RNA sequence: AACAGGACCUCGAUCCUGCCUUUUUCAGCCCGGUUUUUCGGAAUCGAGGUAAUGAUUAACGGGGACAGACGGGGGCAUUAGUAUUGCGGCGCGAGAGGUGAAAUUCUUGGACCGUCGCAAGACUAACUACUGCGAAAGCAUUUGCCAAGAAUGUUUUCAUU
Numbered sequence: 001a002a003c004a005g006g007a008c009c010u011c012g013a014u015c016c017u018g019c020c021u022u023u024u025u026c027a028g029c030c031c032g033g034u035u036u037u038u039c040g041g042a043a044u045c046g047a048g049g050u051a052a053u054g055a056u057u058a059a060c061g062g063g064g065a066c067a068g069a070c071g072g073g074g075g076c077a078u079u080a081g082u083a084u085u086g087c088g089g090c091g092c093g094a095g096a097g098g099u100g101a102a103a104u105u106c107u108u109g110g111a112c113c114g115u116c117g118c119a120a121g122a123c124u125a126a127c128u129a130c131u132g133c134g135a136a137a138g139c140a141u142u143u144g145c146c147a148a149g150a151a152u153g154u155u156u157u158c159a160u161u
Base pairs, nucleotide, nucleotide: 062158063157064156065155066153067152070149074146075145076144077143080124081123084120085119086118087117088116089115090114091113095106096105097104132139133138